RNA sequence: GGGGAUGAUCGGUUUCGACAGCGGAUGUCGAGGCAGGGGAAGCGAGUCGAGGAAGCGGCAAUGAUCUCGUUAACCAUAUGUCGCAAACAAUAAUCGCCAAUUCCAAGCGCGAUUCCUCCACCUUCGCUCUCGCUGCUUAAUUAGCAGCUAGCGAAGACUCCGUGGAGUGUCAGCCCGGGGGUGUUCCCGACCCGGAUCCUGGCAUCAACUAGGGAACUAAACCACCGCGUUCGGUCACGGGACACGGUGGGAAAUCAAACAGUGACUGGGCCUGUCGGAGGCUUGUUCGCGUGACCUCCGGGGCCGAGUAAAAACGUAGCGAACUGCACUCGGAGAAGCCCUGGUUCCGCACCGUUGGACGCGGGUUCGAUUCCCGCCAUCUCCACAG
Dot-bracket structure: (((((((...........((((((.....(((.(((((....((((([[[[[..((((((....]]]]].........))))))............................................((.(((((.......))))).))................((((((.(((.((..[[[[[[..)))))...)))))).......]]]]]]....((((((.((..[[[[[[...)).))))))...........]]]]]].(((((..(((.((...[[[[......)).))))))))...............]]]]...)))))......))))).)))....))))))...(((((.......))))))))))))....
RNA: transfer-messenger RNA
Organism: Streptomyces sp. S4.7